[Rfam]
RNA sequence: AAGCUUGAAGAUGAAGAACUUGUCUCCUACUUCUUGACUGGACUAGAUCUGGACUUCAAUCUAGCGGUCUCCGUUGUGGCCGCUUGGAUUGAACCUAUCCUUGUUGGAGAGUUGUACACAUAGCUGGUCAGCUUCAAGC
Numbered sequence: 001a002a003g004c005u006u007g008a009a010g011a012u013g014a015a016g017a018a019c020u021u022g023u024c025u026c027c028u029a030c031u032u033c034u035u036g037a038c039u040g041g042a043c044u045a046g047a048u049c050u051g052g053a054c055u056u057c058a059a060u061c062u063a064g065c066g067g068u069c070u071c072c073g074u075u076g077u078g079g080c081c082g083c084u085u086g087g088a089u090u091g092a093a094c095c096u097a098u099c100c101u102u103g104u105u106g107g108a109g110a111g112u113u114g115u116a117c118a119c120a121u122a123g124c125u126g127g128u129c130a131g132c133u134u135c136a137a138g139c
Stems, first nucleotide, its partner, number of pairs: 004138005084108002087105003

Small nucleolar RNA Z247: a 139-nucleotide RNA sequence from Miscanthus lutarioriparius. Pairs were carried over by alignment from the consensus structure, which was predicted with PFOLD. NCBI's taxonomy places the organism under Eukaryota, Viridiplantae, Embryophyta, Andropogoneae, Miscanthus. By type it is a C/D-box small nucleolar RNA.